[Rfam]
RNA sequence: AAUGCAAGCCGUUCUAUCGCUGCGAUUAUAUCGGAGAGGAAAGUCCGGGCAACACAGAGCAUCUCGCUUCCUAACGGGAAGAGGUUUGGGGGUGAACACCCGAAUUAUGGAAAGUGCCGCAGAAAGCAUACCGCCGAUGGCUUUUUAAGUACAGGUAAGGUUGAAAACGUGAGGUAAGAGCUCACGAUUUUUCCGGGUGAUCGGAGAACUGGUAAACCCCGGGAGUUGAAAGACCAAAUAGGCUGACGCAUGUAGGGCUGCUCGUCCGAUGUCAGUGGGUAGGUCGUUAGAGAUAAAUGGCAACAUUUAUACUGGAUUAAUGAUAGAAGACAUGAGUAUUCAUGUUACAGAACCCGGCUUACAGGCUUGCAUUUUGU
Number, nucleotide and partner (000 for none) at each position: 001a373002a372003u371004g370005c369006a368007a367008g366009c365010c364011g362012u328013u327014c326015u325016a324017u323018c322019g000020c036021u035022g000023c033024g032025a031026u030027u000028a000029u000030a026031u025032c024033g023034g000035a021036g020037a000038g000039g000040a000041a360042a359043g358044u000045c357046c356047g355048g354049g353050c228051a227052a226053c225054a000055c000056a000057g263058a262059g261060c260061a000062u224063c223064u222065c221066g220067c081068u080069u079070c078071c077072u000073a000074a000075c000076g000077g071078g070079a069080a068081g067082a108083g106084g105085u104086u103087u102088g101089g100090g099091g000092g000093u000094g000095a000096a000097c000098a000099c090100c089101c088102g087103a086104a085105u084106u083107a000108u082109g219110g218111a000112a000113a000114g217115u216116g213117c212118c211119g000120c000121a000122g000123a000124a000125a000126g000127c000128a000129u000130a000131c160132c159133g156134c155135c154136g000137a000138u153139g152140g000141c000142u149143u148144u000145u000146u000147a000148a143149g142150u000151a000152c139153a138154g135155g134156u133157a000158a000159g132160g131161u000162u000163g000164a000165a000166a000167a000168c186169g185170u184171g183172a182173g181174g000175u000176a000177a000178g000179a000180g000181c173182u172183c171184a170185c169186g168187a000188u000189u208190u207191u206192u205193c204194c203195g202196g201197g000198u000199g000200a000201u196202c195203g194204g193205a192206g191207a190208a189209c000210u000211g118212g117213u116214a000215a000216a115217c114218c110219c109220c066221g065222g064223g063224a062225g053226u052227u051228g050229a000230a000231a000232g285233a284234c283235c282236a000237a000238a000239u000240a000241g000242g276243c275244u274245g273246a272247c271248g000249c000250a000251u000252g000253u000254a000255g267256g266257g265258c264259u000260g060261c059262u058263c057264g258265u257266c256267c255268g000269a000270u000271g247272u246273c245274a244275g243276u242277g000278g000279g000280u000281a000282g235283g234284u233285c232286g000287u000288u000289a000290g000291a000292g000293a310294u309295a308296a307297a306298u305299g304300g000301c000302a000303a000304c299305a298306u297307u296308u295309a294310u293311a000312c000313u000314g000315g000316a000317u000318u000319a000320a000321u000322g018323a017324u016325a015326g014327a013328a012329g000330a000331c000332a000333u000334g000335a000336g000337u000338a000339u000340u000341c000342a000343u000344g000345u000346u000347a000348c000349a000350g000351a000352a000353c049354c048355c047356g046357g045358c043359u042360u041361a000362c011363a000364g010365g009366c008367u007368u006369g005370c004371a003372u002373u001374u000375u000376g000377u000